[Rfam]
RNA sequence: AGUGAGGAUAGAGGUGCAUCGGUCAUCAUUACACAGUUUGAGGAUAAUGAGAUCCAUUGACGAUUGUGGAAAGGGAUCGUUGCCGAAGUAACAGAUAACUCAUUAUUUACUGUUGCUGGUUCUGCUAUUGAAUAAAUACAGGACUGUCGUAUAGGUAACUAUAUGGAGGGCUAUCUGACGC
Numbered sequence: 001a002g003u004g005a006g007g008a009u010a011g012a013g014g015u016g017c018a019u020c021g022g023u024c025a026u027c028a029u030u031a032c033a034c035a036g037u038u039u040g041a042g043g044a045u046a047a048u049g050a051g052a053u054c055c056a057u058u059g060a061c062g063a064u065u066g067u068g069g070a071a072a073g074g075g076a077u078c079g080u081u082g083c084c085g086a087a088g089u090a091a092c093a094g095a096u097a098a099c100u101c102a103u104u105a106u107u108u109a110c111u112g113u114u115g116c117u118g119g120u121u122c123u124g125c126u127a128u129u130g131a132a133u134a135a136a137u138a139c140a141g142g143a144c145u146g147u148c149g150u151a152u153a154g155g156u157a158a159c160u161a162u163a164u165g166g167a168g169g170g171c172u173a174u175c176u177g178a179c180g181c
Base pairs, nucleotide, nucleotide: 006176007175008174009173010172011171016083017082018081020079021078022077023076024075032068033067034066035065036064037063038062087117088116089115090114091113092112093111094110097107098106118145119144120143121142122141123140124139126138127137128136129135147166148165149164150163151162152161153160
Lysine riboswitch aptamer: a 181-nucleotide RNA from Virgibacillus salarius. The source organism's lineage runs through Bacteria, Bacillati, Caryophanales, Bacillaceae and Virgibacillus. The family's consensus secondary structure is taken from published work. Rfam's curators write: Riboswitches are metabolite binding domains within certain messenger RNAs that serve as precision sensors for their corresponding targets. Allosteric rearrangement of mRNA structure is mediated by ligand binding, and this results in modulation of gene expression. The match comes from Rfam's covariance-model search (123 bits).